[Rfam]
Shown here is a 126-nucleotide RNA from Vitis rotundifolia, a member of the family "MIR845_2 microRNA precursor family".
Pairs were carried over by alignment from the consensus structure, which was predicted with WAR.
The family has 2 seed sequences and 180 matches in Rfam 15.1.
Taxonomically the source falls in Vitis (Eukaryota, Viridiplantae, Vitales, Vitaceae).
Rfam links the family to the GO terms RISC complex and miRNA-mediated post-transcriptional gene silencing.
RNA sequence: AGAGCGCACAUUCAUUAUCCUUAGGGCCAUGGGAUAAAUACCUACAAAACCAAGUUAGCACACCCUAGAAUGGUUCUAACAUGAUUACUAACCUAUGGAUUUGAUACCAAUUGAUAGGAAAAACAU
Numbered sequence: 001a002g003a004g005c006g007c008a009c010a011u012u013c014a015u016u017a018u019c020c021u022u023a024g025g026g027c028c029a030u031g032g033g034a035u036a037a038a039u040a041c042c043u044a045c046a047a048a049a050c051c052a053a054g055u056u057a058g059c060a061c062a063c064c065c066u067a068g069a070a071u072g073g074u075u076c077u078a079a080c081a082u083g084a085u086u087a088c089u090a091a092c093c094u095a096u097g098g099a100u101u102u103g104a105u106a107c108c109a110a111u112u113g114a115u116a117g118g119a120a121a122a123a124c125a126u
Base pairs, nucleotide, nucleotide: 010115011114012113014111015110016109022103023102024101025100027098028097029096030095031094032093033092043081048075049074051072052071055068056067057066058065